Rfam assigns this 68-nucleotide sequence from Plutella xylostella to the family "mir-278 microRNA precursor family". Rfam links the family to the GO terms RISC complex and miRNA-mediated post-transcriptional gene silencing. Pairs were carried over by alignment from the consensus structure, which was predicted with RNAalifold.
RNA sequence: GCUACGCCCGGACGAACUUCCCAGAUCGGCCGGUGCUCGGGUCGGUGGGAUCUUCGUCCGUUUGUAUC
Numbered sequence: 001g002c003u004a005c006g007c008c009c010g011g012a013c014g015a016a017c018u019u020c021c022c023a024g025a026u027c028g029g030c031c032g033g034u035g036c037u038c039g040g041g042u043c044g045g046u047g048g049g050a051u052c053u054u055c056g057u058c059c060g061u062u063u064g065u066a067u068c
Stems, first nucleotide, its partner, number of pairs: 003066004009060007019050003024046001027044005
The organism belongs to Plutella, within Eukaryota. It scores 60 bits against the family's covariance model.